[Rfam]
RNA: DUF3800-I RNA
RNA sequence: UUAUUAUACCAAAAGGGAAUUCCCCUUUGUUCGGUGUACAAGUAAAAUUAGAUUGAAAAAUUAAGUGUAUUAAAAAUACACCUAUUUACUUGGAAAAGAGCCAUUCAAAGGCUCUUUUUUUUAUGGUAA
Numbered sequence: 001u002u003a004u005u006a007u008a009c010c011a012a013a014a015g016g017g018a019a020u021u022c023c024c025c026u027u028u029g030u031u032c033g034g035u036g037u038a039c040a041a042g043u044a045a046a047a048u049u050a051g052a053u054u055g056a057a058a059a060a061u062u063a064a065g066u067g068u069a070u071u072a073a074a075a076a077u078a079c080a081c082c083u084a085u086u087u088a089c090u091u092g093g094a095a096a097a098g099a100g101c102c103a104u105u106c107a108a109a110g111g112c113u114c115u116u117u118u119u120u121u122u123a124u125g126g127u128a129a
Base pairs, nucleotide, nucleotide: 007036008035009034010033011030012028013027014026015025016024017023039092040091041090042089043088044087049084050083051082052061053060054059065081066080067079068078069077070076093119094118095117096116097115098114099113100112101111102110